[Rfam]
RNA: pan motif
RNA sequence: AGGGCAGUAUCUUUUAGCGAAGAACUGCACCAUAAAAAAUGUGUCAGUGUUGUCAAUGUGAUCUGCCUUGAUCCGCUAAAGGACUGGGACAGAGGG
Numbered sequence: 001a002g003g004g005c006a007g008u009a010u011c012u013u014u015u016a017g018c019g020a021a022g023a024a025c026u027g028c029a030c031c032a033u034a035a036a037a038a039a040u041g042u043g044u045c046a047g048u049g050u051u052g053u054c055a056a057u058g059u060g061a062u063c064u065g066c067c068u069u070g071a072u073c074c075g076c077u078a079a080a081g082g083a084c085u086g087g088g089a090c091a092g093a094g095g096g
Base pairs, nucleotide, nucleotide: 002031003030004028005027006026007025008024010023011022012021013020063092064091065090066088067087068086070084072083073082074081